[Rfam]
RNA: CRISPR RNA direct repeat element
Organism: Trichormus variabilis
RNA sequence: CUUUCAACCCGCCCCUAGCCGGGAUGGUCGUUGAAAC
Numbered sequence: 001c002u003u004u005c006a007a008c009c010c011g012c013c014c015c016u017a018g019c020c021g022g023g024a025u026g027g028u029c030g031u032u033g034a035a036a037c
Base pairs, nucleotide, nucleotide: 005033006032007031008030009027010026013023014022015021